[Rfam]
RNA sequence: CAUAUAAUUUAUGAUGGCAUGAUUCUAAACCCCUAACGGGAGGGAUUGUGCUUGAUUUUCAUAUG
Numbered sequence: 001c002a003u004a005u006a007a008u009u010u011a012u013g014a015u016g017g018c019a020u021g022a023u024u025c026u027a028a029a030c031c032c033c034u035a036a037c038g039g040g041a042g043g044g045a046u047u048g049u050g051c052u053u054g055a056u057u058u059u060c061a062u063a064u065g
Stems, first nucleotide, its partner, number of pairs: 001065005016052010031040003

Rfam assigns this 65-nucleotide RNA sequence from Mytilus coruscus to the family "Selenocysteine insertion sequence 1". The family's RNA type in Rfam is cis-regulatory element. The match comes from Rfam's covariance-model search (38 bits).